[Rfam]
Rfam assigns this 230-nucleotide RNA sequence from Thalassobaculum fulvum to the family "permuted transfer-messenger RNA". The match comes from Rfam's covariance-model search (139 bits). The family's consensus secondary structure is taken from published work. Taxonomically the source falls in Thalassobaculum (Bacteria, Alphaproteobacteria, Rhodospirillales, Thalassobaculaceae). The family's RNA type in Rfam is non-coding RNA gene.

RNA sequence: GGCGAUAAACGGGCGACGGAAUAAGCGUAGCGGACCCGGGGGCAGUACCCGGCGCCUCCACCAAAUUCCUCCGGCCGGUCCAGGCGGACACGGGCGGGGCUGAAGGGGGCGAAACAGGAUCGACGCGCGUGGUAAAGGCCGUCUUUUCGCUCGGUAUGGUACCGCCGUUAUCGGGCUACUAGAUAGUUGCGAACGACAACUAUGCUGGGGAGCUCCGCGCCGCUGCCUAA
Numbered sequence: 001g002g003c004g005a006u007a008a009a010c011g012g013g014c015g016a017c018g019g020a021a022u023a024a025g026c027g028u029a030g031c032g033g034a035c036c037c038g039g040g041g042g043c044a045g046u047a048c049c050c051g052g053c054g055c056c057u058c059c060a061c062c063a064a065a066u067u068c069c070u071c072c073g074g075c076c077g078g079u080c081c082a083g084g085c086g087g088a089c090a091c092g093g094g095c096g097g098g099g100c101u102g103a104a105g106g107g108g109g110c111g112a113a114a115c116a117g118g119a120u121c122g123a124c125g126c127g128c129g130u131g132g133u134a135a136a137g138g139c140c141g142u143c144u145u146u147u148c149g150c151u152c153g154g155u156a157u158g159g160u161a162c163c164g165c166c167g168u169u170a171u172c173g174g175g176c177u178a179c180u181a182g183a184u185a186g187u188u189g190c191g192a193a194c195g196a197c198a199a200c201u202a203u204g205c206u207g208g209g210g211a212g213c214u215c216c217g218c219g220c221c222g223c224u225g226c227c228u229a230a
Stems, first nucleotide, its partner, number of pairs: 001151005014141002017138001026129003030126003036052005053111007152167004